[Rfam]
RNA sequence: GCAUGGACGAAUUCUGCACUAGCUCUCCUCAGUAGCUAAUGCAGUCAGACACUAUGCCAGAGUAAAUUCCAUUUCCACACUCUGGUUGGUGUGCUUUCCCUGUGAGGACAGGCAUGCCCUUGGAAGUGGGAUACAUAA
Numbered sequence: 001g002c003a004u005g006g007a008c009g010a011a012u013u014c015u016g017c018a019c020u021a022g023c024u025c026u027c028c029u030c031a032g033u034a035g036c037u038a039a040u041g042c043a044g045u046c047a048g049a050c051a052c053u054a055u056g057c058c059a060g061a062g063u064a065a066a067u068u069c070c071a072u073u074u075c076c077a078c079a080c081u082c083u084g085g086u087u088g089g090u091g092u093g094c095u096u097u098c099c100c101u102g103u104g105a106g107g108a109c110a111g112g113c114a115u116g117c118c119c120u121u122g123g124a125a126g127u128g129g130g131a132u133a134c135a136u137a138a
Base pairs, nucleotide, nucleotide: 001057002056003055004054005053006052014044015043016042017041018040068131069130070129071127072126073125074124075123076122077121084120085119088118089117090116091115092114093113094112095111096110
Small nucleolar RNA SNORA15: a 138-nucleotide RNA from Nyctibius grandis.
About the family: ACA15 is a member of the H/ACA class of snoRNA that guide the sites of modification of uridines to pseudouridines.
The source organism's lineage runs through Eukaryota, Gnathostomata, Dinosauria, Strisores and Nyctibius.